The record is a 101-nucleotide RNA from Mitsuaria sp. PDC51, which matches "c-di-GMP-I riboswitch aptamer" in Rfam.
NCBI's taxonomy places the organism under Bacteria, Pseudomonadota, Burkholderiales, Sphaerotilaceae, Roseateles.
Gene Ontology term of the family: cyclic-di-GMP binding.
RNA sequence: GACUGCCUAGGGCAAAACCGGCGCGAGCCGGCGACGCAAAGCUUCCGGUCUCCCGCCGGCAUCCCUCCGAUGCCGUGGCGCGAGAUAGCGGGGUUGCCGGA
Number, nucleotide and partner (000 for none) at each position: 001g000002a000003c000004u000005g000006c000007c000008u000009a000010g000011g000012g037013c036014a000015a000016a000017a000018c031019c030020g029021g028022c027023g000024c000025g000026a000027g022028c021029c020030g019031g018032c000033g000034a000035c000036g013037c012038a000039a000040a095041g094042c093043u092044u000045c091046c090047g089048g086049u085050c084051u083052c082053c000054c000055g000056c000057c000058g000059g000060c000061a000062u000063c000064c000065c000066u000067c000068c000069g000070a000071u000072g000073c000074c000075g000076u000077g000078g000079c000080g000081c000082g052083a051084g050085a049086u048087a000088g000089c047090g046091g045092g043093g042094u041095u040096g000097c000098c000099g000100g000101a000